RNA sequence: CGCAGAUGCCCACUUUCAUGGGCGUUUCCUCCCUGACUUGGACCGCUCCGCCCGGGCGGUCCCUUUUCUUUUUGGGG
Numbered sequence: 001c002g003c004a005g006a007u008g009c010c011c012a013c014u015u016u017c018a019u020g021g022g023c024g025u026u027u028c029c030u031c032c033c034u035g036a037c038u039u040g041g042a043c044c045g046c047u048c049c050g051c052c053c054g055g056g057c058g059g060u061c062c063c064u065u066u067u068c069u070u071u072u073u074g075g076g077g
Stems, first nucleotide, its partner, number of pairs: 008023004040062009
Makes More Granules Regulator RNA (mmgR): a 77-nucleotide RNA sequence from Rhodoblastus acidophilus.